[Rfam]
RNA sequence: CUUUUGCUUUUUUGCCCUGGUAAAAAUGACUGAAUCGGCUGACUUGGCGGAGGAACGCAGCCAACCAAAGCAACUGCGACUGGCGAAGGCACGUAGCCACCAAGCAGUUAGAUUCUGUCACUGGGCAAAAG
Number, nucleotide and partner (000 for none) at each position: 001c131002u130003u129004u128005u127006g126007c125008u000009u026010u025011u024012u023013u022014g021015c020016c000017c000018u000019g000020g015021u014022a013023a012024a011025a010026a009027u000028g119029a118030c117031u000032g115033a114034a113035u112036c000037g000038g000039c070040u069041g000042a000043c000044u064045u063046g000047g000048c000049g000050g000051a000052g000053g000054a000055a000056c000057g000058c000059a000060g000061c000062c000063a045064a044065c000066c000067a000068a000069a040070g039071c000072a109073a108074c107075u106076g105077c104078g000079a000080c000081u099082g098083g097084c096085g000086a000087a000088g000089g000090c000091a000092c000093g000094u000095a000096g084097c083098c082099a081100c000101c000102a000103a000104g077105c076106a075107g074108u073109u072110a000111g000112a035113u034114u033115c032116u000117g030118u029119c028120a000121c000122u000123g000124g000125g007126c006127a005128a004129a003130a002131g001
RNA: Enterococcus-1 RNA
Organism: Enterococcus faecium